RNA sequence: GCCCUCGCCAAGGGGUGUUUGACGAAAAUAAAUCGUCGUUAAACUGAGAUGCUAUAUAGCGAACCCUUAGAACCUGAUCCGGCUUAUACCGGCGUAGGAAUGGGCCAAAUUCGCGCA
Numbered sequence: 001g002c003c004c005u006c007g008c009c010a011a012g013g014g015g016u017g018u019u020u021g022a023c024g025a026a027a028a029u030a031a032a033u034c035g036u037c038g039u040u041a042a043a044c045u046g047a048g049a050u051g052c053u054a055u056a057u058a059g060c061g062a063a064c065c066c067u068u069a070g071a072a073c074c075u076g077a078u079c080c081g082g083c084u085u086a087u088a089c090c091g092g093c094g095u096a097g098g099a100a101u102g103g104g105c106c107a108a109a110u111u112c113g114c115g116c117a
Stems, first nucleotide, its partner, number of pairs: 008103003011067004016061001017044009051060003073098004079092004

A member of the RNA family "TPP riboswitch aptamer (THI element)" from Shewanella gelidii, 117 nucleotides long. Lineage of the source: Bacteria > Pseudomonadota > Gammaproteobacteria > Alteromonadales > Shewanella.